[Rfam]
RNA sequence: UUUUAGCCCUGAUGGAAGUGGAAAGCCCGUAAAAGAAAAACAGUAAAUUUUUGUUGGCUUUUUUGGGCGACUGAAAGAAGCCACAAAAAUGACUUACAAAAAUGCUGUUUUUGUUGCGGACUUGAAACGAACAGCAGGAAAUUGC
Numbered sequence: 001u002u003u004u005a006g007c008c009c010u011g012a013u014g015g016a017a018g019u020g021g022a023a024a025g026c027c028c029g030u031a032a033a034a035g036a037a038a039a040a041c042a043g044u045a046a047a048u049u050u051u052u053g054u055u056g057g058c059u060u061u062u063u064u065g066g067g068c069g070a071c072u073g074a075a076a077g078a079a080g081c082c083a084c085a086a087a088a089a090u091g092a093c094u095u096a097c098a099a100a101a102a103u104g105c106u107g108u109u110u111u112u113g114u115u116g117c118g119g120a121c122u123u124g125a126a127a128c129g130a131a132c133a134g135c136a137g138g139a140a141a142u143u144g145c
Stems, first nucleotide, its partner, number of pairs: 009137003013133002018128002023123003027119006034112005